[Rfam]
RNA sequence: GGAAUCCCUACUGAGUAAGACUUAGCAAGUCACUCGUAGCGAGUUUUGGACAUUUAUAGGUGACUGUAAAUGUUAAGCGUAAACAGUUAGGGUGUAGGCGGUAAGUGUAAACUGAAGAGAUUGAGCUCCGAAAUUGUGUGCAUUGGGAGAGGCUGAUGUUGUUGUCAGAACAGAAGGCAAUAACUCUGUAGUCGUAAAGCAAGAAUACAGAGUCGCCCCGGGGUCGAAGACCA
Numbered sequence: 001g002g003a004a005u006c007c008c009u010a011c012u013g014a015g016u017a018a019g020a021c022u023u024a025g026c027a028a029g030u031c032a033c034u035c036g037u038a039g040c041g042a043g044u045u046u047u048g049g050a051c052a053u054u055u056a057u058a059g060g061u062g063a064c065u066g067u068a069a070a071u072g073u074u075a076a077g078c079g080u081a082a083a084c085a086g087u088u089a090g091g092g093u094g095u096a097g098g099c100g101g102u103a104a105g106u107g108u109a110a111a112c113u114g115a116a117g118a119g120a121u122u123g124a125g126c127u128c129c130g131a132a133a134u135u136g137u138g139u140g141c142a143u144u145g146g147g148a149g150a151g152g153c154u155g156a157u158g159u160u161g162u163u164g165u166c167a168g169a170a171c172a173g174a175a176g177g178c179a180a181u182a183a184c185u186c187u188g189u190a191g192u193c194g195u196a197a198a199g200c201a202a203g204a205a206u207a208c209a210g211a212g213u214c215g216c217c218c219c220g221g222g223g224u225c226g227a228a229g230a231c232c233a
Base pairs, nucleotide, nucleotide: 012036013035014034015033019031020030021029022028023202025200026199038088039087040086043084044083045082046081047079048078049074050073051072052071053070054069055068056067057066058065059064122227123225125224126223127222128221129220130219145218146217147216151214152178153177154176157172158171159170160169183213184212185211186210187209188208189207190206192204193203
The record is a 233-nucleotide sequence from Acetohalobium arabaticum, which matches "Group II catalytic intron D1-D4-6" in Rfam. Group II introns are found in rRNA, tRNA and mRNA of organelles in fungi, plants and protists, and also in mRNA in bacteria. The base pairs follow the family's consensus structure.